Rfam assigns this 122-nucleotide sequence from Keratinibaculum paraultunense to the family "PyrR binding site". This family represents the PyrR binding site and terminator structure.

RNA sequence: UAAAUCUUUAAAUCAGUUCAGAGAGGCUGGCAAGAUUGUAAAUUGUAAUAGGGAUUAUGCAAACUAUACUUAUAUUUUUUAGUAUAAAAAACUUCUUGCUGCCUGCAAGAAGUUUUUUUAUG
Numbered sequence: 001u002a003a004a005u006c007u008u009u010a011a012a013u014c015a016g017u018u019c020a021g022a023g024a025g026g027c028u029g030g031c032a033a034g035a036u037u038g039u040a041a042a043u044u045g046u047a048a049u050a051g052g053g054a055u056u057a058u059g060c061a062a063a064c065u066a067u068a069c070u071u072a073u074a075u076u077u078u079u080u081a082g083u084a085u086a087a088a089a090a091a092c093u094u095c096u097u098g099c100u101g102c103c104u105g106c107a108a109g110a111a112g113u114u115u116u117u118u119u120a121u122g
Stems, first nucleotide, its partner, number of pairs: 003037006013030006054085002058081002061078003065074003086118014